[Rfam]
RNA sequence: GGGGGCGACAUGGCUUCGACGCCGGUGACAACCUCCUAGGUGCAUGCCGAGAGCGUGAUGUAUCUCGUAAAUCCAACAUCACGACUAAAUAGUCGCAAACGACGACAACUACGCUCAGGGCGCUCUGGCAGCUUAAACGCUGUUAGCAGUUAGCCUGGCCCCAAAGCGAUGUGCCCAUUCAUCGCGGCGGGGAUAUGAGCGAAAGCUGAUGGGAUCGCGGUUGGCGGCGUCCUCACGUCAAUCGCUAAACCUUCGAGGAAUCGCGCUGCUGGAUCCUGCCCGUUGGAGCCAGUAGCGUUAGAUCAAAAAACGGACCUAAGCAUGUAGAGCCGAAGAGCGAGUAUCGGCGGACGGGGGUUCAAUUCCCCCCGCCUCCACCA
Numbered sequence: 001g002g003g004g005g006c007g008a009c010a011u012g013g014c015u016u017c018g019a020c021g022c023c024g025g026u027g028a029c030a031a032c033c034u035c036c037u038a039g040g041u042g043c044a045u046g047c048c049g050a051g052a053g054c055g056u057g058a059u060g061u062a063u064c065u066c067g068u069a070a071a072u073c074c075a076a077c078a079u080c081a082c083g084a085c086u087a088a089a090u091a092g093u094c095g096c097a098a099a100c101g102a103c104g105a106c107a108a109c110u111a112c113g114c115u116c117a118g119g120g121c122g123c124u125c126u127g128g129c130a131g132c133u134u135a136a137a138c139g140c141u142g143u144u145a146g147c148a149g150u151u152a153g154c155c156u157g158g159c160c161c162c163a164a165a166g167c168g169a170u171g172u173g174c175c176c177a178u179u180c181a182u183c184g185c186g187g188c189g190g191g192g193a194u195a196u197g198a199g200c201g202a203a204a205g206c207u208g209a210u211g212g213g214a215u216c217g218c219g220g221u222u223g224g225c226g227g228c229g230u231c232c233u234c235a236c237g238u239c240a241a242u243c244g245c246u247a248a249a250c251c252u253u254c255g256a257g258g259a260a261u262c263g264c265g266c267u268g269c270u271g272g273a274u275c276c277u278g279c280c281c282g283u284u285g286g287a288g289c290c291a292g293u294a295g296c297g298u299u300a301g302a303u304c305a306a307a308a309a310a311c312g313g314a315c316c317u318a319a320g321c322a323u324g325u326a327g328a329g330c331c332g333a334a335g336a337g338c339g340a341g342u343a344u345c346g347g348c349g350g351a352c353g354g355g356g357g358u359u360c361a362a363u364u365c366c367c368c369c370c371g372c373c374u375c376c377a378c379c380a
Stems, first nucleotide, its partner, number of pairs: 001376007020349008033337003037333001039331003043324005048067005054083007125146008159192004166185004174213006217245007229261002232258002263298010274287003278316001281313001283309002353369005
The family of this 380-nucleotide sequence from Modicisalibacter muralis is "transfer-messenger RNA". The family's consensus secondary structure is taken from published work. Bacterial tmRNA, also known as 10Sa RNA or SsrA, is named for its dual tRNA and mRNA-like properties. Its role is to liberate the mRNA from a stalled ribosome. To accomplish this part of the tmRNA is used as a reading frame that ends in a translation stop signal. The broken mRNA is replaced in the ribosome by the tmRNA and translation of the tmRNA leads to addition of a proteolysis tag to the incomplete protein enabling recognition by a protease. Recently a number of permuted tmRNA genes have been found encoded in two parts. tmRNAs have been identified in eubacteria and some chloroplasts but are absent from archaeal and eukaryote nuclear genomes. It scores 206 bits against the family's covariance model. Its family is annotated with RNA catabolic process in the Gene Ontology. A reference for the family is Zwieb et al. (2003), "tmRDB (tmRNA database)", Nucleic Acids Res. The family is grouped with related families in Rfam's "tRNA clan". Lineage of the source: Bacteria > Pseudomonadota > Gammaproteobacteria > Oceanospirillales > Modicisalibacter.